[Rfam]
RNA: mir-302 microRNA precursor family
Organism: Sphenodon punctatus
RNA sequence: CUGUUGCUUUAACAUGGAUGUACCUGCUGUACAAAGAAAGUAAGUGCUUCCAUGUUUCAGUGGUGG
Numbered sequence: 001c002u003g004u005u006g007c008u009u010u011a012a013c014a015u016g017g018a019u020g021u022a023c024c025u026g027c028u029g030u031a032c033a034a035a036g037a038a039a040g041u042a043a044g045u046g047c048u049u050c051c052a053u054g055u056u057u058c059a060g061u062g063g064u065g066g
Base pairs, nucleotide, nucleotide: 001066002065003064005062006061007060008059011056012055013054014053015052016051017050018049020047021046022045023044025042026041027040028039